[Rfam]
RNA sequence: UCCCUCCAAAUCCCUUUCCCAUCAGAUCUGAAUACCGAUCUUGUGGUCGAAAAAGGAGGAAGAGUAAAAUUCAUGCUGGUCUUGGGCUCUCUGCAGGUGUGUCCUCUGCUGAGAGGGGCCACUAGGAAGACAGGUUGGGCCAGCCUCACUAUUUU
Numbered sequence: 001u002c003c004c005u006c007c008a009a010a011u012c013c014c015u016u017u018c019c020c021a022u023c024a025g026a027u028c029u030g031a032a033u034a035c036c037g038a039u040c041u042u043g044u045g046g047u048c049g050a051a052a053a054a055g056g057a058g059g060a061a062g063a064g065u066a067a068a069a070u071u072c073a074u075g076c077u078g079g080u081c082u083u084g085g086g087c088u089c090u091c092u093g094c095a096g097g098u099g100u101g102u103c104c105u106c107u108g109c110u111g112a113g114a115g116g117g118g119c120c121a122c123u124a125g126g127a128a129g130a131c132a133g134g135u136u137g138g139g140c141c142a143g144c145c146u147c148a149c150u151a152u153u154u155u
Base pairs, nucleotide, nucleotide: 003059004058005057006056007055019046020045021044023043025040026039027038028037076143077142078141079140080139081138082137091133092132093131
Dot-bracket structure: ..(((((...........(((.(.((((........))))..))))........)))))................(((((((........(((.....................................)))...)))))))............